[Rfam]
RNA sequence: CCAUAUUCAUGAAAAAUUGCCAAUAUAAUCUGGGAAGCACGGUCCCAAAGUUUCUACCGAACGCCAAGUCUCGUUCGACUAUUGGUUCAGCUUUUCUUUUG
Numbered sequence: 001c002c003a004u005a006u007u008c009a010u011g012a013a014a015a016a017u018u019g020c021c022a023a024u025a026u027a028a029u030c031u032g033g034g035a036a037g038c039a040c041g042g043u044c045c046c047a048a049a050g051u052u053u054c055u056a057c058c059g060a061a062c063g064c065c066a067a068g069u070c071u072c073g074u075u076c077g078a079c080u081a082u083u084g085g086u087u088c089a090g091c092u093u094u095u096c097u098u099u100u101g
Stems, first nucleotide, its partner, number of pairs: 019086007029049001031047005058077006
Shown here is a 101-nucleotide RNA from Mageeibacillus indolicus, a member of the family "Purine riboswitch aptamer". The source organism's lineage runs through Bacteria, Bacillati, Clostridia, Mageeibacillus and Mageeibacillus indolicus. Rfam links the family to the GO term purine nucleobase biosynthetic process. The match comes from Rfam's covariance-model search (54 bits). The family's consensus secondary structure is taken from published work.